[Rfam]
RNA sequence: GGCAAAGUAGGAAUAACCGCGUGAAGUGCCAGUAGGACGGGAAGUUGCCGCUGGACGAAAAACCCAUGGAGGUUUACGGUGUUUAUUCCGCAUUCCGUUGCC
Numbered sequence: 001g002g003c004a005a006a007g008u009a010g011g012a013a014u015a016a017c018c019g020c021g022u023g024a025a026g027u028g029c030c031a032g033u034a035g036g037a038c039g040g041g042a043a044g045u046u047g048c049c050g051c052u053g054g055a056c057g058a059a060a061a062a063c064c065c066a067u068g069g070a071g072g073u074u075u076a077c078g079g080u081g082u083u084u085a086u087u088c089c090g091c092a093u094u095c096c097g098u099u100g101c102c
Stems, first nucleotide, its partner, number of pairs: 001102005010089007018081002020078003026056002029054005035049002040095003044091001060075004
Record summary
Rfam assigns this 102-nucleotide sequence from Proteiniclasticum aestuarii to the family "THF (Tetrahydrofolate) riboswitch aptamer". Lineage of the source: Bacteria > Bacillati > Eubacteriales > Clostridiaceae > Proteiniclasticum. Rfam's curators write: Tetrahydrofolate (THF) riboswitch was first reported for Ames et al. as an RNA motif in 5' untranslated (5'-UTR)regions of folate transport and biosynthesis genes in Firmicutes genomes. Rfam links the family to the GO term tetrahydrofolate metabolic process. Rfam 15.1 lists 747 matches to the family in 747 species.